Record summary:
Shown here is an 88-nucleotide sequence from Streptococcus pyogenes, a member of the family "S. pyogenes small RNA 779816". The literature on the family includes a 2016 paper in RNA Biol by Le Rhun et al., "RNA sequencing uncovers antisense RNAs and novel small RNAs in Streptococcus pyogenes". The base pairs follow the family's consensus structure, which was predicted with RNAalifold.
[Rfam]
RNA sequence: GUAAAGAGACCUACUUAAAGCAGGUUUUUACUAUACUAGAUUCGCCUCACGCUCAGAGUCGCCAAACUUUGAGAGCGUGGGGUUUUUU
Number, nucleotide and partner (000 for none) at each position: 001g000002u000003a000004a000005a029006g028007a027008g026009a025010c024011c023012u022013a000014c000015u000016u020017a000018a000019a000020g016021c000022a012023g011024g010025u009026u008027u007028u006029u005030a000031c000032u000033a000034u000035a000036c000037u000038a000039g000040a000041u000042u000043c000044g083045c082046c081047u080048c079049a078050c077051g076052c075053u074054c073055a070056g069057a068058g067059u066060c000061g000062c000063c000064a000065a000066a059067c058068u057069u056070u055071g000072a000073g054074a053075g052076c051077g050078u049079g048080g047081g046082g045083u044084u000085u000086u000087u000088u000